[Rfam]
RNA: Plastid-rpl20 3UTR RNA
Organism: Musa balbisiana
Nucleotides: 083
Stems, first nucleotide, its partner, number of pairs: 007030001009028007068078003
Number, partner (000 for none) and nucleotide at each position: 001000a002000c003000a004000g005000a006000a007030u008000c009028c010027c011026c012025g013024g014023a015022g016000a017000a018000g019000g020000a021000a022015c023014u024013c025012c026011g027010g028009g029000a030007a031000a032000a033000u034000a035000g036000c037000c038000a039000u040000a041000a042000a043000a044000a045000a046000u047000a048000a049000u050000u051000a052000a053000g054000a055000u056000a057000g058000u059000a060000u061000a062000g063000g064000a065000a066000u067000g068078a069077a070076c071000g072000a073000a074000u075000a076070g077069u078068u079000g080000c081000a082000a083000u